[Rfam]
Nucleotides: 107
Stems, first nucleotide, its partner, number of pairs: 003061003009058003013030002016027001038053002042050001044048001069107005074099002078095003081091001083089001
Number, partner (000 for none) and nucleotide at each position: 001000a002000a003061g004060g005059u006000u007000u008000u009058c010057a011056c012000a013030a014029c015000g016027a017000g018000a019000c020000u021000u022000c023000g024000u025000c026000a027016u028000g029014g030013u031000c032000a033000g034000g035000c036000a037000a038053a039052u040000a041000a042050g043000a044048c045000c046000a047000c048044g049000a050042c051000c052039g053038u054000g055000u056011g057010u058009g059005g060004c061003c062000a063000u064000a065000a066000a067000a068000u069107u070106g071105a072104u073103c074099g075098c076000u077000u078095c079094a080093g081091g082000g083089g084000u085000a086000a087000u088000a089083u090000g091081c092000u093080c094079u095078g096000c097000u098075g099074c100000c101000a102000u103073g104072a105071u106070c107069a